[Rfam]
RNA sequence: UGAUAUGGUCGUAGUACAGCGACCAGUAUAAUCAAAAAAAAUGCACAAAUGGA
Numbered sequence: 001u002g003a004u005a006u007g008g009u010c011g012u013a014g015u016a017c018a019g020c021g022a023c024c025a026g027u028a029u030a031a032u033c034a035a036a037a038a039a040a041a042u043g044c045a046c047a048a049a050u051g052g053a
Base pairs, nucleotide, nucleotide: 006025007024008023009022010021011020014046015045017043
Description: This 53-nucleotide RNA sequence belongs to the Rfam family "6A RNA". Rfam classes the family as a small RNA. Rfam's curators put it in the seed alignment.